[Rfam]
Nucleotides: 109
Base pairs, nucleotide, nucleotide: 006097007096008095009094010093011061012060013059014058017032018031019030020029021028039055040054041053042052043051067090068089069088070087071084072083073082074081
Number, partner (000 for none) and nucleotide at each position: 001000a002000a003000c004000g005000a006097u007096u008095g009094c010093u011061g012060g013059g014058g015000g016000a017032g018031c019030c020029g021028c022000g023000g024000c025000g026000a027000u028021g029020c030019g031018g032017c033000u034000g035000a036000g037000a038000g039055u040054g041053c042052g043051c044000g045000a046000u047000a048000c049000a050000g051043g052042c053041g054040c055039a056000g057000a058014c059013c060012c061011c062000u063000c064000g065000a066000a067090c068089c069088u070087g071084u072083u073082g074081g075000g076000u077000a078000a079000u080000u081074c082073c083072a084071g085000c086000g087070u088069a089068g090067g091000g092000a093010a094009g095008c096007a097006g098000u099000c100000u101000g102000g103000c104000c105000g106000a107000g108000c109000g